The record is a 99-nucleotide RNA sequence from Triticum turgidum, which matches "Small nucleolar RNA Z103" in Rfam. The match comes from Rfam's covariance-model search (91 bits). Its family is annotated with nucleolus and RNA processing in the Gene Ontology. A reference for the family is Chen et al. (2003), "The high diversity of snoRNAs in plants: identification and comparative study of 120 snoRNA genes from Oryza sativa", Nucleic Acids Res.
RNA sequence: AUGGAUGUGAGGACCCUUUCCCCAAAUGAUCGACUCUGAUUAUACUGUGCGCAAGUGUAAUCCUUUAUCAGAGGAUUCCAAGCCAGAAGUCUGGUUCAU
Dot-bracket structure: (((((.........................................................................................)))))